[Rfam]
RNA sequence: AUUUCUGAGCAUAAAAACACAAGGCGGUUGGUAGUCCGCCGCAUGAAAAUGUCAGUAACCUUCCCUCCCGGGUCGUCCAUUGCUUAGUUUACAAAU
Numbered sequence: 001a002u003u004u005c006u007g008a009g010c011a012u013a014a015a016a017a018c019a020c021a022a023g024g025c026g027g028u029u030g031g032u033a034g035u036c037c038g039c040c041g042c043a044u045g046a047a048a049a050u051g052u053c054a055g056u057a058a059c060c061u062u063c064c065c066u067c068c069c070g071g072g073u074c075g076u077c078c079a080u081u082g083c084u085u086a087g088u089u090u091a092c093a094a095a096u
Stems, first nucleotide, its partner, number of pairs: 005087007023040005041052004063072003